RNA sequence: ACCUGGCAUCCAGGUGGUGUGUGCCUGUAGUCCCAGCUGUUUGGGGAGGCUAAGCCUGAUGGAUCACUUGAGCCCAGGAAUUCUGGGCUGCAGGGCACUGUGCUGAGCAGGGGUCCAAGCUAACAUCAGGUGUCCAGGCCAACAUCAAUAUGGUGAUCCGUGGGGUAGCUGCGGGUCACCAGGUUGACUAAGGAAGGGUGAACCAGCCCAGAUUGGAGAUGGAGCAGGUCAAAGCUCCCAUGGUGGUCAGUAGUGGGAUCACACCUGUGAACAGGCCCUGCAGCAUCCUGGUCAUCACAGAGACACACGGACUCCU
Number, nucleotide and partner (000 for none) at each position: 001a000002c049003c048004u000005g025006g024007c023008a022009u021010c000011c019012a000013g000014g000015u000016g000017g000018u000019g011020u000021g009022u008023g007024c006025c005026u000027g000028u000029a000030g000031u047032c046033c045034c000035a000036g000037c000038u000039g000040u000041u000042u000043g000044g000045g033046g032047a031048g003049g002050c000051u000052a000053a313054g312055c000056c310057u309058g308059a000060u000061g000062g000063a000064u303065c302066a000067c300068u299069u000070g295071a000072g293073c000074c291075c290076a289077g288078g287079a000080a000081u000082u000083c000084u285085g284086g000087g000088c283089u282090g281091c280092a279093g278094g277095g276096c000097a000098c274099u273100g272101u271102g000103c269104u000105g000106a000107g000108c000109a000110g000111g000112g000113g000114u000115c000116c000117a000118a000119g000120c000121u000122a000123a000124c000125a000126u000127c267128a266129g265130g264131u263132g262133u261134c257135c256136a000137g248138g247139c246140c245141a244142a000143c242144a241145u240146c186147a185148a184149u183150a000151u181152g180153g179154u178155g177156a176157u175158c174159c173160g172161u171162g170163g169164g000165g000166u000167a000168g000169c163170u162171g161172c160173g159174g158175g157176u156177c155178a154179c153180c152181a151182g000183g149184u148185u147186g146187a000188c192189u000190a000191a000192g188193g000194a000195a000196g237197g236198g235199u234200g000201a000202a000203c000204c000205a000206g229207c228208c227209c000210a000211g000212a000213u222214u221215g220216g000217a000218g000219a000220u215221g214222g213223a000224g000225c000226a000227g208228g207229u206230c000231a000232a000233a000234g199235c198236u197237c196238c000239c000240a145241u144242g143243g000244u141245g140246g139247u138248c137249a000250g000251u000252a000253g000254u000255g000256g135257g134258a000259u000260c000261a133262c132263a131264c130265c129266u128267g127268u000269g103270a000271a101272c100273a099274g098275g000276c095277c094278c093279u092280g091281c090282a089283g088284c085285a084286u000287c078288c077289u076290g075291g074292u000293c072294a000295u070296c000297a000298c000299a068300g067301a000302g065303a064304c000305a000306c000307a000308c058309g057310g056311a000312c054313u053314c000315c000316u000